Annotation
Rfam assigns this 172-nucleotide sequence from Halorubrum lacusprofundi to the family "Sense overlapping transcript RNA 0042 (sot)". Rfam's curators write: It is associated with IS1341-type transposase (tnpB) genes, at the 3'-end in H. salinarum NRC-1. The family's consensus secondary structure was predicted with RNAfold. On this family, see Gomes-Filho et al., RNA Biol 2015: "Sense overlapping transcripts in IS1341-type transposase genes are functional non-coding RNAs in archaea".
[Rfam]
RNA sequence: AGAUAACUCCGAGUCCUCACGGCGAGGAUAGGAGUAACGGCUGUGUGGCACAGCCAUCGGUACACUUGUUCGACCGCGAGAGCGGGACGGUUCGCCCGAGAGAACAGGUUGUAUCGUAAACCAGUAAAUAUCCCACCUGCGGUACGGGAAGCCCCGGCGUUUACGCCGGGGA
Numbered sequence: 001a002g003a004u005a006a007c008u009c010c011g012a013g014u015c016c017u018c019a020c021g022g023c024g025a026g027g028a029u030a031g032g033a034g035u036a037a038c039g040g041c042u043g044u045g046u047g048g049c050a051c052a053g054c055c056a057u058c059g060g061u062a063c064a065c066u067u068g069u070u071c072g073a074c075c076g077c078g079a080g081a082g083c084g085g086g087a088c089g090g091u092u093c094g095c096c097c098g099a100g101a102g103a104a105c106a107g108g109u110u111g112u113a114u115c116g117u118a119a120a121c122c123a124g125u126a127a128a129u130a131u132c133c134c135a136c137c138u139g140c141g142g143u144a145c146g147g148g149a150a151g152c153c154c155c156g157g158c159g160u161u162u163a164c165g166c167c168g169g170g171g172a
Stems, first nucleotide, its partner, number of pairs: 004037001007034004013029006039055005058116006065108007084097003131149004136142002152171008